[Rfam]
RNA sequence: GUUUGCCUGUAUGUGGCGGUUUUCAGCACCAAGUACAGCCAUGUUUGGCUGUGUGUGGAUGUGUGUGUGAGGUGUUCAGAACCAAGGACAGAUAUGUUUUGCU
Numbered sequence: 001g002u003u004u005g006c007c008u009g010u011a012u013g014u015g016g017c018g019g020u021u022u023u024c025a026g027c028a029c030c031a032a033g034u035a036c037a038g039c040c041a042u043g044u045u046u047g048g049c050u051g052u053g054u055g056u057g058g059a060u061g062u063g064u065g066u067g068u069g070a071g072g073u074g075u076u077c078a079g080a081a082c083c084a085a086g087g088a089c090a091g092a093u094a095u096g097u098u099u100u101g102c103u
Stems, first nucleotide, its partner, number of pairs: 004094002007091004018083006025076006033054001035052007

The record is a 103-nucleotide RNA from Branchiostoma belcheri, which matches "mir-2060 microRNA precursor family" in Rfam.
The source organism's lineage runs through Eukaryota, Cephalochordata, Leptocardii, Branchiostomatidae and Branchiostoma.
Pairs were carried over by alignment from the consensus structure, which was predicted with RNAalifold.